[Rfam]
RNA sequence: GGAGGGCCUAGCUAGGCCUGGCCCAGACCUCAGCAGCACCAGCUGAUGGACUGAGUCAGGACCAGGCUCUCC
Numbered sequence: 001g002g003a004g005g006g007c008c009u010a011g012c013u014a015g016g017c018c019u020g021g022c023c024c025a026g027a028c029c030u031c032a033g034c035a036g037c038a039c040c041a042g043c044u045g046a047u048g049g050a051c052u053g054a055g056u057c058a059g060g061a062c063c064a065g066g067c068u069c070u071c072c
Stems, first nucleotide, its partner, number of pairs: 001072006009064001011062001013061001017060006024053003028049002030046005

Rfam assigns this 72-nucleotide RNA from Carlito syrichta to the family "mir-631 microRNA precursor family". Rfam 15.1 lists 98 matches to the family in 94 species. The base pairs follow the family's consensus structure, which was predicted with RNAalifold.